[Rfam]
RNA sequence: AUUGGGCUUAGUUAGGAGGCAUAAAUCAAUCUGAUCUUUUCGAUACUUCUCUGUAUUGGUUUGAUCUUAAUGACUUGAGGUCUUUUGAGGAGGAGCUCUGCCUUUUUUUUUUGCUGCUUCUCCCAAGCAGCCUCAGACAUUA
Number, nucleotide and partner (000 for none) at each position: 001a000002u000003u000004g000005g020006g000007c018008u017009u016010a000011g000012u000013u000014a000015g000016g009017a008018g007019g000020c005021a000022u000023a000024a000025a000026u000027c000028a000029a000030u000031c000032u000033g066034a065035u064036c063037u000038u000039u000040u000041c059042g000043a000044u058045a057046c000047u055048u000049c000050u000051c000052u000053g000054u000055a047056u000057u045058g044059g041060u000061u000062u000063g036064a035065u034066c033067u000068u000069a000070a000071u000072g000073a000074c000075u136076u135077g134078a133079g132080g131081u130082c000083u000084u127085u126086u125087g124088a000089g123090g122091a121092g120093g119094a118095g117096c116097u000098c000099u000100g000101c000102c000103u000104u000105u000106u000107u000108u000109u000110u000111u000112u000113g000114c000115u000116g096117c095118u094119u093120c092121u091122c090123c089124c087125a086126a085127g084128c000129a000130g081131c080132c079133u078134c077135a076136g075137a000138c000139a000140u000141u000142a000